[Rfam]
RNA sequence: CAAGCCAGAAGAGGCGCGUCGCCCAGGUACAGUGUCGGAGGAGCCGUUAUCCCAUGACGGCACUGGAGGGGGAGCGACGCCGAGGUAUGUCGCCCAUUCGGCUAAGCGACGUGUCGGCUACAGGGGCUGAAUCCCCUGGGUUGUCACCAUGAUCGUCCCUAACGGGCGGUCGGCAAGGUGGGGCGCUUCUGGGUGU
Dot-bracket structure: .....((((((....(((((((.(.....((((((((....................))))))))......).)))))))...((((((((((............))))))))))((((.((((((......)))))))))).(((((.(........................).)))))....)))))).....
RNA: Lysine riboswitch aptamer
Organism: Serratia rubidaea